This 86-nucleotide sequence from Peribacillus muralis belongs to the Rfam family "c-di-GMP-I riboswitch aptamer". GEMM was predicted in a large-scale screen for bacterial structured RNA regulatory elements. Its family is annotated with cyclic-di-GMP binding in the Gene Ontology. The family's consensus secondary structure is taken from published work.
RNA sequence: CCACGACAAAGGCAAACUUAUUGAAAGAUAGGGGCGCAAAGGCACAGGUCUAAGGUCCGCUCGACUAAGAUGGCUGGUCUGCCUGA
Numbered sequence: 001c002c003a004c005g006a007c008a009a010a011g012g013c014a015a016a017c018u019u020a021u022u023g024a025a026a027g028a029u030a031g032g033g034g035c036g037c038a039a040a041g042g043c044a045c046a047g048g049u050c051u052a053a054g055g056u057c058c059g060c061u062c063g064a065c066u067a068a069g070a071u072g073g074c075u076g077g078u079c080u081g082c083c084u085g086a
Stems, first nucleotide, its partner, number of pairs: 012037002017032006040080004045076003048071003055065003